Description:
Bacterial large subunit ribosomal RNA: a 340-nucleotide part of an RNA from Lewinella sp. W8.
[Rfam]
RNA sequence: GAUAAAAGGGGUGAGAAACCCCUUCGCCGUAAGACUAAGGUUUCCGUAUUCGAUGUUAAUCAGAAUCGGGUUAGUCGGGUCCUAAGGUGUAGCCGCCAGGCGAAGCCGAUGGCAAACGGGUUAAUAUUCCCGUACCCGCUCACGACGAAAGCGACGGAGUAGUGUAGGUAUCGCGUACUGACGGAAUAGUACGUUGAAGGUUGGUUAAAACUGACCGAUAGUACAGUGAUUGCUACGGCAAGAACUGAUAGUGUACCGAAGCGACUUCCAAGAAAUAGCGAGUGAAGCGGCCCGUACCGUAAACCGACACAGGUAGUCGAGGAGAGUAUCCUAAGGCGCU
Numbered sequence: 001g002a003u004a005a006a007a008g009g010g011g012u013g014a015g016a017a018a019c020c021c022c023u024u025c026g027c028c029g030u031a032a033g034a035c036u037a038a039g040g041u042u043u044c045c046g047u048a049u050u051c052g053a054u055g056u057u058a059a060u061c062a063g064a065a066u067c068g069g070g071u072u073a074g075u076c077g078g079g080u081c082c083u084a085a086g087g088u089g090u091a092g093c094c095g096c097c098a099g100g101c102g103a104a105g106c107c108g109a110u111g112g113c114a115a116a117c118g119g120g121u122u123a124a125u126a127u128u129c130c131c132g133u134a135c136c137c138g139c140u141c142a143c144g145a146c147g148a149a150a151g152c153g154a155c156g157g158a159g160u161a162g163u164g165u166a167g168g169u170a171u172c173g174c175g176u177a178c179u180g181a182c183g184g185a186a187u188a189g190u191a192c193g194u195u196g197a198a199g200g201u202u203g204g205u206u207a208a209a210a211c212u213g214a215c216c217g218a219u220a221g222u223a224c225a226g227u228g229a230u231u232g233c234u235a236c237g238g239c240a241a242g243a244a245c246u247g248a249u250a251g252u253g254u255a256c257c258g259a260a261g262c263g264a265c266u267u268c269c270a271a272g273a274a275a276u277a278g279c280g281a282g283u284g285a286a287g288c289g290g291c292c293c294g295u296a297c298c299g300u301a302a303a304c305c306g307a308c309a310c311a312g313g314u315a316g317u318c319g320a321g322g323a324g325a326g327u328a329u330c331c332u333a334a335g336g337c338g339c340u
Stems, first nucleotide, its partner, number of pairs: 006024006025338004033318004039298002044069003048066003054062002076294004081112002086107003090103001092101003116133005136290005145283002151279002156268004162257001169250004173194006195225002203216003227244001230241004304313002320332004
A search with the family's covariance model found it, with a score of 2702 bits. The base pairs follow the family's consensus structure, which is taken from published work. Clan: LSU clan. Taxonomically the source falls in Lewinella (Bacteria, Pseudomonadati, Bacteroidota, Saprospirales).